[Rfam]
RNA sequence: CUGGUUCCGGUUCACGUCCGGUCCGCACCCCGCGGACGGCGACCCGGCGGCU
Number, nucleotide and partner (000 for none) at each position: 001c000002u000003g052004g051005u050006u000007c047008c046009g045010g044011u000012u000013c000014a000015c041016g040017u039018c038019c000020g000021g000022u034023c000024c000025g000026c000027a000028c000029c000030c000031c000032g000033c000034g022035g000036a000037c000038g018039g017040c016041g015042a000043c000044c010045c009046g008047g007048c000049g000050g005051c004052u003

The record is a 52-nucleotide sequence from Nocardioides sp. dk884, which matches "L31-Actinobacteria ribosomal protein leader" in Rfam. The family's consensus secondary structure is taken from published work. On this family, see Eckert and Weinberg, BMC Microbiol 2020: "Discovery of 20 novel ribosomal leader candidates in bacteria and archaea". The source organism's lineage runs through Bacteria, Actinomycetota, Actinomycetes, Propionibacteriales and Nocardioides.